[Rfam]
RNA sequence: UUUUUGAAAUGUCUGCCAGGUCCACCUCUGCUUAAGUUGAUAUUUAUUUAAUUAUCACUGGGCAAGGUAGACUCUACAGCCGUUUCUUCAA
Numbered sequence: 001u002u003u004u005u006g007a008a009a010u011g012u013c014u015g016c017c018a019g020g021u022c023c024a025c026c027u028c029u030g031c032u033u034a035a036g037u038u039g040a041u042a043u044u045u046a047u048u049u050a051a052u053u054a055u056c057a058c059u060g061g062g063c064a065a066g067g068u069a070g071a072c073u074c075u076a077c078a079g080c081c082g083u084u085u086c087u088u089c090a091a
Stems, first nucleotide, its partner, number of pairs: 006086006013079003019073004024068004029064006036058002040055003

Rfam assigns this 91-nucleotide sequence from Tribolium castaneum to the family "mir-3836 microRNA precursor family". Pairs were carried over by alignment from the consensus structure, which was predicted with RNAalifold. NCBI's taxonomy places the organism under Eukaryota, Bilateria, Allotriocarida, Insecta, Tribolium. Gene Ontology terms of the family: RISC complex and miRNA-mediated post-transcriptional gene silencing.